[Rfam]
RNA sequence: UGCAAGUAUUUUACGGUUAAGAAGCAACUGUCUCUUGUACAGAUCGUGUAGUAGUAG
Numbered sequence: 001u002g003c004a005a006g007u008a009u010u011u012u013a014c015g016g017u018u019a020a021g022a023a024g025c026a027a028c029u030g031u032c033u034c035u036u037g038u039a040c041a042g043a044u045c046g047u048g049u050a051g052u053a054g055u056a057g
Stems, first nucleotide, its partner, number of pairs: 018037005024031002
RNA: Plastid-rps18 3UTR RNA
Organism: Nicotiana attenuata